[Rfam]
The record is a 109-nucleotide RNA sequence from Sinorhizobium saheli, which matches "EcpR1" in Rfam. From the family's description: Perviously named SmelC291, SmrC10, or Sra33. For this family Rfam cites "A genome-wide survey of sRNAs in the symbiotic nitrogen-fixing alpha-proteobacterium Sinorhizobium meliloti" (Schluter et al., BMC Genomics, 2010). The family's consensus secondary structure was predicted with WAR. The organism belongs to Sinorhizobium, within Bacteria. A search with the family's covariance model found it, with a score of 93 bits. Gene Ontology terms of the family: negative regulation of cell cycle, mRNA binding and regulation of translation in response to stress. It is annotated as a small RNA.
Nucleotides: 109
Base pairs, nucleotide, nucleotide: 003046004045005044006043007042008041009040010039014037015036016035017034018033019032048104049103050102051101052100053099054098055097056096057095
Number, partner (000 for none) and nucleotide at each position: 001000u002000u003046a004045c005044c006043c007042c008041a009040u010039g011000a012000u013000g014037c015036u016035c017034a018033g019032g020000u021000c022000c023000g024000c025000c026000g027000c028000a029000u030000c031000u032019c033018c034017u035016g036015g037014g038000u039010c040009g041008u042007g043006g044005g045004g046003u047000c048104g049103g050102u051101c052100g053099g054098c055097u056096g057095g058000c059000c060000u061000c062000g063000g064000a065000u066000u067000u068000c069000g070000c071000g072000g073000a074000u075000u076000c077000c078000u079000c080000g081000u082000g083000c084000c085000g086000c087000a088000g089000c090000c091000g092000g093000a094000a095057c096056c097055a098054g099053u100052c101051g102050a103049c104048c105000c106000c107000c108000a109000u